[Rfam]
RNA sequence: AGCCUUCAGGUGCUUACCACAGGCUGUGUUCUUACACCGACUGUAUAGAAGGAGGAGGCAAAGUAAACCUACCCCAUAUACACCUCAGCCCAGGCCCUGUGCCUAGUCUGUAUUGUGAAUGGGGACACAUGG
Numbered sequence: 001a002g003c004c005u006u007c008a009g010g011u012g013c014u015u016a017c018c019a020c021a022g023g024c025u026g027u028g029u030u031c032u033u034a035c036a037c038c039g040a041c042u043g044u045a046u047a048g049a050a051g052g053a054g055g056a057g058g059c060a061a062a063g064u065a066a067a068c069c070u071a072c073c074c075c076a077u078a079u080a081c082a083c084c085u086c087a088g089c090c091c092a093g094g095c096c097c098u099g100u101g102c103c104u105a106g107u108c109u110g111u112a113u114u115g116u117g118a119a120u121g122g123g124g125a126c127a128c129a130u131g132g
Base pairs, nucleotide, nucleotide: 002059003058004057005056006055007054020043021042022041026037027036028035029034072124073123074122075121076120077119086110087109088108090106092104093103094102095101
The family of this 132-nucleotide RNA sequence from Castor canadensis is "Small nucleolar RNA SNORA51".
It scores 141 bits against the family's covariance model.
It is annotated as an H/ACA-box small nucleolar RNA.
Pairs were carried over by alignment from the consensus structure, which was predicted with PFOLD.
From the family's description: ACA51 is a member of the H/ACA class of snoRNA that guide the sites of modification of uridines to pseudouridines.
NCBI's taxonomy places the organism under Eukaryota, Opisthokonta, Craniata, Mammalia, Castor.